SAM riboswitch aptamer (S box leader): a 90-nucleotide sequence from Nesterenkonia cremea. The SAM riboswitch is found upstream of a number of genes which code for proteins involved in methionine or cysteine biosynthesis in Gram-positive bacteria. Gene Ontology term of the family: regulation of gene expression. It scores 57 bits against the family's covariance model.
[Rfam]
RNA sequence: AGACCAUCCAGAGCGACUGAGAGAUCUGGCUCGAAGACGUCGCAGCAACCACCCCGCGGGGCCCGGUGCUAACGCCAGGAACGAUGGAGA
Numbered sequence: 001a002g003a004c005c006a007u008c009c010a011g012a013g014c015g016a017c018u019g020a021g022a023g024a025u026c027u028g029g030c031u032c033g034a035a036g037a038c039g040u041c042g043c044a045g046c047a048a049c050c051a052c053c054c055c056g057c058g059g060g061g062c063c064c065g066g067u068g069c070u071a072a073c074g075c076c077a078g079g080a081a082c083g084a085u086g087g088a089g090a
Base pairs, nucleotide, nucleotide: 004087005086006085007084008083013043014042015041016040017039021032022031023030026078027077028076029075044070045069046068047067049066050065052061053060054059074082